The record is an 83-nucleotide RNA sequence from Sinocyclocheilus anshuiensis, which matches "Small nucleolar RNA SNORD53/SNORD92" in Rfam. The family is grouped with related families in Rfam's "SNORD52 clan". On this family, see Kiss-Laszlo et al., Cell 1996: "Site-specific ribose methylation of preribosomal RNA: a novel function for small nucleolar RNAs". The source organism's lineage runs through Eukaryota, Opisthokonta, Metazoa, Eumetazoa and Sinocyclocheilus.

RNA sequence: UGUACAUGAUGAUACUAGAGAAUGGUUUCGCAUUCAUGACCUGAUGUCAUGUGGUGAUACACUUCUCUUGGCUGUCUGAUACG
Number, nucleotide and partner (000 for none) at each position: 001u083002g082003u081004a080005c000006a000007u000008g000009a000010u000011g000012a000013u000014a000015c000016u000017a000018g000019a000020g000021a000022a000023u000024g000025g000026u000027u000028u000029c000030g000031c000032a000033u000034u000035c000036a000037u000038g000039a000040c000041c000042u000043g000044a000045u000046g000047u000048c000049a000050u000051g000052u000053g000054g000055u000056g000057a000058u000059a000060c000061a000062c000063u000064u000065c000066u000067c000068u000069u000070g000071g000072c000073u000074g000075u000076c000077u000078g000079a000080u004081a003082c002083g001